[Rfam]
RNA sequence: UGACGGGGACCCGCACAAGCAGUGGAGUAUGUGGUUUAAUUCGAAGCAACGCGAAGAACCUUACCAGGUCUUGACAUCCCUCUGAAUACAUUAGAGAUAGUGUAGGCCUUCGGGACAGAGGAGACAGGUGGUGCAUGGUUGUCGUCAGCUCGUGUCGUGAGAUGUUGGGUUAAGUCCCGCAACGAGCGCAACCCUUGAUUUUAGUUGCCAGCAUUCAGUUGGGCACUCUAGAAUGACUGCCGGUGACAAACCGGAGGAAGGUGGGGAUGACGUCAAAUCAUCAUGCCCCUUAUGACCUGGGCUACACACGUACUACAAUGGCCGGUACAACGGGGUGCAAUACCGCGAGGUGGAGCGAAUCCUUAAAAGCCGGUCUCAGUUCGGAUUGCAGGCUGCAACUCGCCUGCAUGAAGUCGGAAUUGCUAGUAAUCGCGGAUCAGCAUGCCGCGGUGAAUACGUUCCCGGGUCUUGUACACACCGCCCGUCACACCACGAGAGUUUAUAACACCCGAAGUCGGUGAGGUAACCGCAAGGAGCCAGCCGCCGAAGGUGGGAUAGAUGAUUGGGGUGAAGUCGUAACAAGG
Dot-bracket structure: (((((.(((((((.((..((((((.((((((((((....((((........))))........(((((((......(((((((...(((((((....)))))))(.((....)).)))))).))..((.((((..((((((.((...(((((((((....)))..((((......))))..)))))).....((((.(((((((...((..((......))))....)))))))..((.(((((.....))))).)).....))))....)).).)))...))))))))....)))))))...)).)))))))).)...(((((((.....(((..((...(((....)))...))....))).....)))))))......(....(((((((........)))))))....).....))))).....(((((((.........)))))))......))...)))))))))).))..(.(..((...((((.(((..((((((..((((....(.((((..(((..((....)).))).)))).)...))))..))))))..))).))))....))...)..).
The record is a 584-nucleotide part of an RNA from Paenibacillus psychroresistens, which matches "Bacterial small subunit ribosomal RNA" in Rfam. Rfam links the family to the GO terms structural constituent of ribosome and ribosome.